Background: The family of this 85-nucleotide sequence from Geodermatophilus ruber is "ZMP/ZTP riboswitch aptamer (pfl RNA motif)".
RNA sequence: CGGUGGGGCCGUGACUGGCGCAUCGAGGUGGACGAACCACCGGGGAGCGGCCCGCACCACCCCGCCGGGCGCCUGGGCACCUCCC
Dot-bracket structure: .....(((((((..(([[[[[......((((.....))))..))..)))))))..........(((..]]]]]..))).......
The organism belongs to Geodermatophilus, within Bacteria.
The family has 185 seed sequences and 3,295 matches in Rfam 15.1.
A search with the family's covariance model found it, with a score of 49 bits.
Rfam links the family to the GO terms regulation of purine nucleotide biosynthetic process and one-carbon metabolic process.